Shown here is an 81-nucleotide sequence from Pieris brassicae, a member of the family "mir-2765 microRNA precursor family".
Rfam 15.1 lists 109 matches to the family in 106 species.
RNA sequence: UCUGUACCUGGGCCUGGUAACUCCACCACCGUUGGCGUUAUCACCGCCAACGGGGGACGAGUUCCUGCUCCUAGAUGCGAU
Numbered sequence: 001u002c003u004g005u006a007c008c009u010g011g012g013c014c015u016g017g018u019a020a021c022u023c024c025a026c027c028a029c030c031g032u033u034g035g036c037g038u039u040a041u042c043a044c045c046g047c048c049a050a051c052g053g054g055g056g057a058c059g060a061g062u063u064c065c066u067g068c069u070c071c072u073a074g075a076u077g078c079g080a081u
Stems, first nucleotide, its partner, number of pairs: 003079004008074005016066002019063005026056002029053009

It scores 90 bits against the family's covariance model. The organism belongs to Pieris, within Eukaryota.